[Rfam]
Rfam assigns this 75-nucleotide RNA from Alligator mississippiensis to the family "Mammalian CPEB3 ribozyme".
RNA sequence: UUGCAAGUUCAAGGCCAAAACAUAAGUGCUCAUGAUGUGGCUCUGUCAGAUUCCAAUGAAGCUGUGAAUUCUGCU
Numbered sequence: 001u002u003g004c005a006a007g008u009u010c011a012a013g014g015c016c017a018a019a020a021c022a023u024a025a026g027u028g029c030u031c032a033u034g035a036u037g038u039g040g041c042u043c044u045g046u047c048a049g050a051u052u053c054c055a056a057u058g059a060a061g062c063u064g065u066g067a068a069u070u071c072u073g074c075u
Stems, first nucleotide, its partner, number of pairs: 013042004019075001021073002024070002026038003047064003051060003
The base pairs follow the family's consensus structure, which is taken from published work.
A search with the family's covariance model found it, with a score of 40 bits.
From the family's description: The mammalian CPEB3 ribozyme is a self cleaving RNA located in the second intron of the CPEB3 gene which belongs to a family of genes regulating messenger RNA polyadenylation. This ribozyme is highly conserved and found only in mammals.